[Rfam]
RNA: Vault RNA
RNA sequence: GCGCCGGCUUAGCUCAGCGGUUACUUCUUGAACAAACCUUUCCCCUACCCGGGGUUUCGAACCACGGGCGCUGUCCGGCGUUUUU
Numbered sequence: 001g002c003g004c005c006g007g008c009u010u011a012g013c014u015c016a017g018c019g020g021u022u023a024c025u026u027c028u029u030g031a032a033c034a035a036a037c038c039u040u041u042c043c044c045c046u047a048c049c050c051g052g053g054g055u056u057u058c059g060a061a062c063c064a065c066g067g068g069c070g071c072u073g074u075c076c077g078g079c080g081u082u083u084u085u
Base pairs, nucleotide, nucleotide: 002080003079004078005077006076007075012069013068014067015066017065019063020062025061026060027059